[Rfam]
RNA sequence: CAGUUAAAAAGCUCGUAGUUGGACCUUGGGCCGGGCCGGCCGGUCCGCCUCACGGCGAGAACCGACCGGCUCGACCCUUCUGCCGGCGAUGCGCUCCUGGCCUUAACUGGCCGGGUCGUGCCUCCGGCGCCGUUACUUUGAAGAAAUUAGAGUGCUCAAAGCAAGCCAUCGCUCUGGAUACAUUAGCAUGGGAUAACAUCAUAGGAUUCCGGUCCUAUUGUGUUGGCCUUCGGGAUCGGAGUAAUGAUUAAUAGGGACAGUCGGGGGCAUUCGUAUUUCAUAGUCAGAGGUGAAAUUCUUGGACCGGCGCAAGACGGCCUAGAGCGAAAGCAUUUGCCAAGAAUGUUUUCAUUAAUCAAGAACGAAAGUUGGGGGCUCGAAGACGAUCAGAUACCGUCCUAGUCUCAACCAUAAACGAUGCCGACCAGGGAUCAGCGGGUGUUACUAAUAGGACCCCGCUGGCACCUUAUGAGAAAUCAAAGUCUUUGGGUUCCGGGGGGAGUAUGGUCGCAAGGCUGAAACUUAAAGGAAU
Numbered sequence: 001c002a003g004u005u006a007a008a009a010a011g012c013u014c015g016u017a018g019u020u021g022g023a024c025c026u027u028g029g030g031c032c033g034g035g036c037c038g039g040c041c042g043g044u045c046c047g048c049c050u051c052a053c054g055g056c057g058a059g060a061a062c063c064g065a066c067c068g069g070c071u072c073g074a075c076c077c078u079u080c081u082g083c084c085g086g087c088g089a090u091g092c093g094c095u096c097c098u099g100g101c102c103u104u105a106a107c108u109g110g111c112c113g114g115g116u117c118g119u120g121c122c123u124c125c126g127g128c129g130c131c132g133u134u135a136c137u138u139u140g141a142a143g144a145a146a147u148u149a150g151a152g153u154g155c156u157c158a159a160a161g162c163a164a165g166c167c168a169u170c171g172c173u174c175u176g177g178a179u180a181c182a183u184u185a186g187c188a189u190g191g192g193a194u195a196a197c198a199u200c201a202u203a204g205g206a207u208u209c210c211g212g213u214c215c216u217a218u219u220g221u222g223u224u225g226g227c228c229u230u231c232g233g234g235a236u237c238g239g240a241g242u243a244a245u246g247a248u249u250a251a252u253a254g255g256g257a258c259a260g261u262c263g264g265g266g267g268c269a270u271u272c273g274u275a276u277u278u279c280a281u282a283g284u285c286a287g288a289g290g291u292g293a294a295a296u297u298c299u300u301g302g303a304c305c306g307g308c309g310c311a312a313g314a315c316g317g318c319c320u321a322g323a324g325c326g327a328a329a330g331c332a333u334u335u336g337c338c339a340a341g342a343a344u345g346u347u348u349u350c351a352u353u354a355a356u357c358a359a360g361a362a363c364g365a366a367a368g369u370u371g372g373g374g375g376c377u378c379g380a381a382g383a384c385g386a387u388c389a390g391a392u393a394c395c396g397u398c399c400u401a402g403u404c405u406c407a408a409c410c411a412u413a414a415a416c417g418a419u420g421c422c423g424a425c426c427a428g429g430g431a432u433c434a435g436c437g438g439g440u441g442u443u444a445c446u447a448a449u450a451g452g453a454c455c456c457c458g459c460u461g462g463c464a465c466c467u468u469a470u471g472a473g474a475a476a477u478c479a480a481a482g483u484c485u486u487u488g489g490g491u492u493c494c495g496g497g498g499g500g501a502g503u504a505u506g507g508u509c510g511c512a513a514g515g516c517u518g519a520a521a522c523u524u525a526a527a528g529g530a531a532u
Base pairs, nucleotide, nucleotide: 001495003493009492011363013361014360018356019355020354254350255349256348257347258345259344261342262341266338267337268336269335272316273315276312277311279309281307283305287298288297289296324331325330368409369408370407371406372405373404378402382398383397384396385395420491421490422489423484424483425482427467428466429465432462433461434460435459436458437457438456439455441454442453443452471478472477497524498523499522506517507516508515509514
A member of the RNA family "Eukaryotic small subunit ribosomal RNA" from Erythrocercus mccallii, 532 nucleotides of a longer RNA. Its Rfam clan is "SSU clan". NCBI's taxonomy places the organism under Eukaryota, Vertebrata, Amniota, Aves, Erythrocercus. Rfam 15.1 lists 75,755 matches to the family in 2,556 species. The match comes from Rfam's covariance-model search (1753 bits).